[Rfam]
RNA sequence: CAUCAUGUUUCCAAGGUUUAUGGCUAGUAAUAACCAUGGGAUCUAAAACUGCAUGGGGGAAUAACCUGAGACUUUGAAAGCAGAGGUUAGCAUAAUACCUAUAGCUGUCACUCACUUUUCCUAUAUUU
Numbered sequence: 001c002a003u004c005a006u007g008u009u010u011c012c013a014a015g016g017u018u019u020a021u022g023g024c025u026a027g028u029a030a031u032a033a034c035c036a037u038g039g040g041a042u043c044u045a046a047a048a049c050u051g052c053a054u055g056g057g058g059g060a061a062u063a064a065c066c067u068g069a070g071a072c073u074u075u076g077a078a079a080g081c082a083g084a085g086g087u088u089a090g091c092a093u094a095a096u097a098c099c100u101a102u103a104g105c106u107g108u109c110a111c112u113c114a115c116u117u118u119u120c121c122u123a124u125a126u127u128u
Base pairs, nucleotide, nucleotide: 011039012038016035018033019032020031021030068121069117070116080108081107084100085099086098
This 128-nucleotide sequence from Erinaceus europaeus belongs to the Rfam family "Small nucleolar RNA SNORA44". NCBI's taxonomy places the organism under Eukaryota, Eumetazoa, Sarcopterygii, Boreoeutheria, Erinaceus. ACA44 is a member of the H/ACA class of snoRNA that guide the sites of modification of uridines to pseudouridines.